[Rfam]
RNA sequence: UAAUGAAGGAGUAAAAAGAAGCCCUACAGUCAUAGGACUUCUCAUAGCAGAACCGUUUAAGACGGUUGACAUUUUAGAUGUGAUA
Number, nucleotide and partner (000 for none) at each position: 001u000002a000003a000004u000005g000006a000007a000008g000009g000010a000011g000012u000013a000014a000015a000016a000017a000018g000019a000020a000021g000022c000023c036024c035025u034026a033027c000028a000029g000030u000031c000032a000033u026034a025035g024036g023037a000038c000039u000040u000041c000042u000043c000044a000045u000046a000047g000048c000049a000050g000051a000052a066053c065054c064055g063056u062057u061058u000059a000060a000061g057062a056063c055064g054065g053066u052067u000068g000069a000070c000071a000072u000073u000074u000075u000076a000077g000078a000079u000080g000081u000082g000083a000084u000085a000
Shown here is an 85-nucleotide RNA from Lapidilactobacillus concavus, a member of the family "RNA anti-toxin A". On this family, see Fozo et al., Nucleic Acids Res 2010: "Abundance of type I toxin-antitoxin systems in bacteria: searches for new candidates and discovery of novel families". The family's RNA type in Rfam is antitoxin RNA. NCBI's taxonomy places the organism under Bacteria, Bacillota, Lactobacillaceae, Lapidilactobacillus, Lapidilactobacillus concavus.